A member of the RNA family "Small nucleolar RNA SNORA42/SNORA80 family" from Loxodonta africana, 135 nucleotides long. NCBI's taxonomy places the organism under Eukaryota, Opisthokonta, Eumetazoa, Eutheria, Loxodonta. Pairs were carried over by alignment from the consensus structure, which was predicted with RNAalifold. On this family, see Schattner et al., RNA 2006: "A computational screen for mammalian pseudouridylation guide H/ACA RNAs". About the family: The members of this family belong to the H/ACA class of snoRNAs that guide the sites of modification of uridines to pseudouridines. Human ACA42 (SNORA42) was cloned from HeLa cells by immunoprecipitation with anti-GAR1 antibody.

[Rfam]
RNA sequence: GCAUUGUAGUGAAUUUAUGGCAGGCCUCCUCUGUGGGUCUUGCAUAGUGUGUCCAUGCCACAGUAAACUGUAGCCUCAACUACUGGCCAGCCUCCUUCCCCAUGGGCUGUGGGCACGGAAAGGGAUGACACAGUG
Numbered sequence: 001g002c003a004u005u006g007u008a009g010u011g012a013a014u015u016u017a018u019g020g021c022a023g024g025c026c027u028c029c030u031c032u033g034u035g036g037g038u039c040u041u042g043c044a045u046a047g048u049g050u051g052u053c054c055a056u057g058c059c060a061c062a063g064u065a066a067a068c069u070g071u072a073g074c075c076u077c078a079a080c081u082a083c084u085g086g087c088c089a090g091c092c093u094c095c096u097u098c099c100c101c102a103u104g105g106g107c108u109g110u111g112g113g114c115a116c117g118g119a120a121a122g123g124g125a126u127g128a129c130a131c132a133g134u135g
Base pairs, nucleotide, nucleotide: 001058002057003056004055006052007051008050015047016046017045018044019043022040023039024038025036026035071128073126075124076123081118087112088109089108090107091106092105093104